[Rfam]
RNA sequence: AGAGCAGGGAUUGUGUGUAUCGGUUGUGUGCUAAGAUUAAUGCACCCUUCCGAAAGAGUUCCCUGCAACAUUUAUUAUGAGAAAGUGGGCAGUUGUGUUUCAUCUUCUCCGUUGAUAGUCACAACAAUCAUUUUCCCUACAUCU
Numbered sequence: 001a002g003a004g005c006a007g008g009g010a011u012u013g014u015g016u017g018u019a020u021c022g023g024u025u026g027u028g029u030g031c032u033a034a035g036a037u038u039a040a041u042g043c044a045c046c047c048u049u050c051c052g053a054a055a056g057a058g059u060u061c062c063c064u065g066c067a068a069c070a071u072u073u074a075u076u077a078u079g080a081g082a083a084a085g086u087g088g089g090c091a092g093u094u095g096u097g098u099u100u101c102a103u104c105u106u107c108u109c110c111g112u113u114g115a116u117a118g119u120c121a122c123a124a125c126a127a128u129c130a131u132u133u134u135c136c137c138u139a140c141a142u143c144u
Base pairs, nucleotide, nucleotide: 004066005065006064007063008062009061010060015045016044017043018042019041020040079137081135082134083133084132085131086130087129088128092125093124094123095122

The family of this 144-nucleotide RNA sequence from Arachis hypogaea is "small nucleolar RNA snoR135". It is annotated as an H/ACA-box small nucleolar RNA. NCBI's taxonomy places the organism under Eukaryota, Streptophyta, Spermatophyta, Fabaceae, Arachis. The base pairs follow the family's consensus structure, which was predicted with RNAalifold.